[Rfam]
RNA: mir-932 microRNA precursor family
Organism: Zootermopsis nevadensis
RNA sequence: UUCUGCUUCAAUUCCGUAGUGCAUUGCAGUAUCUGUUGUAUUCUGUAAUCAUUGCGGAGGUGAGGUGGAAGA
Numbered sequence: 001u002u003c004u005g006c007u008u009c010a011a012u013u014c015c016g017u018a019g020u021g022c023a024u025u026g027c028a029g030u031a032u033c034u035g036u037u038g039u040a041u042u043c044u045g046u047a048a049u050c051a052u053u054g055c056g057g058a059g060g061u062g063a064g065g066u067g068g069a070a071g072a
Base pairs, nucleotide, nucleotide: 006065007064008063009062010061013058014057015056016055017054020051021050024048025047026046027045028044